[Rfam]
Shown here is a 140-nucleotide RNA sequence from Drosophila gunungcola, a member of the family "Small nucleolar RNA psi18S-1377". It is annotated as an H/ACA-box small nucleolar RNA. The family has 15 seed sequences and 113 matches in Rfam 15.1. It scores 128 bits against the family's covariance model. The base pairs follow the family's consensus structure, which was predicted with RNAalifold.
RNA sequence: ACGUUCUCGUGUUAUUUGCUAGUUUGUUAUACCCAAAACUAGCGAUUGUCAAACAGAACGAAAAGUAAAGUCACCUAAUCACUCCAUAAUGUUGAGCCGACUUUCCAGGGCUUCUGCAUUACUAAAUGUGUGCCACAUUC
Numbered sequence: 001a002c003g004u005u006c007u008c009g010u011g012u013u014a015u016u017u018g019c020u021a022g023u024u025u026g027u028u029a030u031a032c033c034c035a036a037a038a039c040u041a042g043c044g045a046u047u048g049u050c051a052a053a054c055a056g057a058a059c060g061a062a063a064a065g066u067a068a069a070g071u072c073a074c075c076u077a078a079u080c081a082c083u084c085c086a087u088a089a090u091g092u093u094g095a096g097c098c099g100a101c102u103u104u105c106c107a108g109g110g111c112u113u114c115u116g117c118a119u120u121a122c123u124a125a126a127u128g129u130g131u132g133c134c135a136c137a138u139u140c
Base pairs, nucleotide, nucleotide: 002060003059004058005057006056007055010051011050016045017044018043019042020041021040022039088120089119090118091117092116095112096111097110098109

Notes
About the family: psi18S-1377 is a member of the H/ACA class of snoRNA. This family is responsible for guiding the modification of uridines 1377 and 1279 to pseudouridine in Drosophila 18S rRNA.